[Rfam]
RNA sequence: CCUGUUGUGUGACCAACAGUGGUCUAGGAUGACGUGCGUACCGAGUAAUCGGUGGGUGCGAAGCUCAUCUGACAAAGCCUCCCCCAGUGGGCCGUCGAGUCGCGAGUCGAGACGUGGAAGCACCUCAGCAGCAGAGGUGUCAGGGG
Numbered sequence: 001c002c003u004g005u006u007g008u009g010u011g012a013c014c015a016a017c018a019g020u021g022g023u024c025u026a027g028g029a030u031g032a033c034g035u036g037c038g039u040a041c042c043g044a045g046u047a048a049u050c051g052g053u054g055g056g057u058g059c060g061a062a063g064c065u066c067a068u069c070u071g072a073c074a075a076a077g078c079c080u081c082c083c084c085c086a087g088u089g090g091g092c093c094g095u096c097g098a099g100u101c102g103c104g105a106g107u108c109g110a111g112a113c114g115u116g117g118a119a120g121c122a123c124c125u126c127a128g129c130a131g132c133a134g135a136g137g138u139g140u141c142a143g144g145g146g
Stems, first nucleotide, its partner, number of pairs: 002019006028069005033060005039054006082091003092117004101106001121139006
Shown here is a 146-nucleotide sequence from Pseudofulvimonas gallinarii, a member of the family "Group II catalytic intron D1-D4-7".
The literature on the family includes a 2001 paper in EMBO J by Chu et al., "Control of branch-site choice by a group II intron".
Group II introns are found in rRNA, tRNA and mRNA of organelles in fungi, plants and protists, and also in mRNA in bacteria.
The match comes from Rfam's covariance-model search (100 bits).
The family has 244 seed sequences and 1,296 matches in Rfam 15.1.